[Rfam]
RNA sequence: AACAAGGAAGGCUCAGUAGCCAAUGUAGAUCCUGUCUUUUGUAAUCAGUAGCUACAUCUGGCUACUGGGUCUCAAAAAUAAAAA
Numbered sequence: 001a002a003c004a005a006g007g008a009a010g011g012c013u014c015a016g017u018a019g020c021c022a023a024u025g026u027a028g029a030u031c032c033u034g035u036c037u038u039u040u041g042u043a044a045u046c047a048g049u050a051g052c053u054a055c056a057u058c059u060g061g062c063u064a065c066u067g068g069g070u071c072u073c074a075a076a077a078a079u080a081a082a083a084a
Stems, first nucleotide, its partner, number of pairs: 013068006020061003023057006032051004
The family of this 84-nucleotide sequence from Aotus nancymaae is "mir-221 microRNA precursor family".
Pairs were carried over by alignment from the consensus structure, which was predicted with RNAalifold.
The match comes from Rfam's covariance-model search (73 bits).